[Rfam]
RNA sequence: AAAACUCUUCAGGGCGAGGUGCAAUUCCUCACCGGCGGUAAAAGUCCGCGAGCGAAAGCUGAAUUGGUGCAAUUCCAAUACCGACAGUAUAGUCUGGAUGAAAGAAGAUAAUU
Numbered sequence: 001a002a003a004a005c006u007c008u009u010c011a012g013g014g015c016g017a018g019g020u021g022c023a024a025u026u027c028c029u030c031a032c033c034g035g036c037g038g039u040a041a042a043a044g045u046c047c048g049c050g051a052g053c054g055a056a057a058g059c060u061g062a063a064u065u066g067g068u069g070c071a072a073u074u075c076c077a078a079u080a081c082c083g084a085c086a087g088u089a090u091a092g093u094c095u096g097g098a099u100g101a102a103a104g105a106a107g108a109u110a111a112u113u
Base pairs, nucleotide, nucleotide: 006108007107008106009105010104017029018028019027031093032092033083034082035049036048037047038046044081045080052059053058063079064078065077066076067075085096086095087094
RNA: FMN riboswitch aptamer (RFN element)
Organism: Peptoniphilus harei